Source information:
A member of the RNA family "Purine riboswitch aptamer" from Brevibacillus borstelensis, 101 nucleotides long. The base pairs follow the family's consensus structure, which is taken from published work.
RNA sequence: CUAGAAUUUCCUUCGAAUACUCGUAUAGUAUCAGGAAUUGGCCUGACAGUUUCUACCGCUCGACCGUAAAUCGGGCGACUACGAGGUGAGGACUUCGGAUU
Numbered sequence: 001c002u003a004g005a006a007u008u009u010c011c012u013u014c015g016a017a018u019a020c021u022c023g024u025a026u027a028g029u030a031u032c033a034g035g036a037a038u039u040g041g042c043c044u045g046a047c048a049g050u051u052u053c054u055a056c057c058g059c060u061c062g063a064c065c066g067u068a069a070a071u072c073g074g075g076c077g078a079c080u081a082c083g084a085g086g087u088g089a090g091g092a093c094u095u096c097g098g099a100u101u
Stems, first nucleotide, its partner, number of pairs: 020085006029048001031046005057077007